[Rfam]
RNA sequence: CACCCCGUACGCGACUGGCGAUAGGCGCAGCACCCCCCACGGUGCCACGCGCUGACGUGGAAUACCACUGGGAAGCGUGCCGCCUGGCAUCCAUACAGGCGUUCAGCCGUUCGCCUGGGCAGCCCUU
Numbered sequence: 001c002a003c004c005c006c007g008u009a010c011g012c013g014a015c016u017g018g019c020g021a022u023a024g025g026c027g028c029a030g031c032a033c034c035c036c037c038c039a040c041g042g043u044g045c046c047a048c049g050c051g052c053u054g055a056c057g058u059g060g061a062a063u064a065c066c067a068c069u070g071g072g073a074a075g076c077g078u079g080c081c082g083c084c085u086g087g088c089a090u091c092c093a094u095a096c097a098g099g100c101g102u103u104c105a106g107c108c109g110u111u112c113g114c115c116u117g118g119g120c121a122g123c124c125c126u127u
Stems, first nucleotide, its partner, number of pairs: 005082001007080006015072002017115005057068004104122001106120003
Rfam assigns this 127-nucleotide RNA from Variovorax paradoxus to the family "ZMP/ZTP riboswitch aptamer (pfl RNA motif)". NCBI's taxonomy places the organism under Bacteria, Pseudomonadota, Betaproteobacteria, Burkholderiales, Variovorax. The match comes from Rfam's covariance-model search (53 bits). The family's consensus secondary structure is taken from published work. Gene Ontology terms of the family: regulation of purine nucleotide biosynthetic process and one-carbon metabolic process.